RNA sequence: UGUUAAAAAUUGCAUUCGUUUUUCUUGUUAAAAACUAAUGUAACUGAUAGAUAACCAGAAAAUUACACGUGAUAUGUCAUGUGUAUCUCGUACUAACGUACAAUGAUCAAUAUUUUACAAUAGAAAUGUAUGAAAUUUUUAACA
Numbered sequence: 001u002g003u004u005a006a007a008a009a010u011u012g013c014a015u016u017c018g019u020u021u022u023u024c025u026u027g028u029u030a031a032a033a034a035c036u037a038a039u040g041u042a043a044c045u046g047a048u049a050g051a052u053a054a055c056c057a058g059a060a061a062a063u064u065a066c067a068c069g070u071g072a073u074a075u076g077u078c079a080u081g082u083g084u085a086u087c088u089c090g091u092a093c094u095a096a097c098g099u100a101c102a103a104u105g106a107u108c109a110a111u112a113u114u115u116u117a118c119a120a121u122a123g124a125a126a127u128g129u130a131u132g133a134a135a136u137u138u139u140u141a142a143c144a
Stems, first nucleotide, its partner, number of pairs: 002143010013132003018127006025120002028117001030115003